Record summary:
The family of this 224-nucleotide sequence is "FuFi-1 RNA". It is one of the family's seed sequences. The family's consensus secondary structure is taken from published work.
[Rfam]
RNA sequence: GCGUGAUGCGUUAGGGCAAGAGGCAGCGCCAGAACUGCCAAAGUGAGCGGCGCGUCCAUAGAAGCGCAAGUUCGUUUUGUGUCAGGAUGGCAUUGCCGAGCCGGUGGAAAGAACUCUACCAAUUCGGACGGAUGCGAAGUAAUGCAGACGGCCAUCCUGUGCAGCGCGUUCUGGUAAACAACUCUGGGGAAACCCGCUCGUGAACGAACCACGGGCGGCUUUUC
Numbered sequence: 001g002c003g004u005g006a007u008g009c010g011u012u013a014g015g016g017c018a019a020g021a022g023g024c025a026g027c028g029c030c031a032g033a034a035c036u037g038c039c040a041a042a043g044u045g046a047g048c049g050g051c052g053c054g055u056c057c058a059u060a061g062a063a064g065c066g067c068a069a070g071u072u073c074g075u076u077u078u079g080u081g082u083c084a085g086g087a088u089g090g091c092a093u094u095g096c097c098g099a100g101c102c103g104g105u106g107g108a109a110a111g112a113a114c115u116c117u118a119c120c121a122a123u124u125c126g127g128a129c130g131g132a133u134g135c136g137a138a139g140u141a142a143u144g145c146a147g148a149c150g151g152c153c154a155u156c157c158u159g160u161g162c163a164g165c166g167c168g169u170u171c172u173g174g175u176a177a178a179c180a181a182c183u184c185u186g187g188g189g190a191a192a193c194c195c196g197c198u199c200g201u202g203a204a205c206g207a208a209c210c211a212c213g214g215g216c217g218g219c220u221u222u223u224c
Base pairs, nucleotide, nucleotide: 004046022039023038024037025036026035029187030186031185032184033183050169051168052167053166054165055164064082065081066080067079068078069077070209071208072207073206074205075204076203083159084158085157086156087155088154089153090152191221192220194218195217196216197215198214199213200212201211202210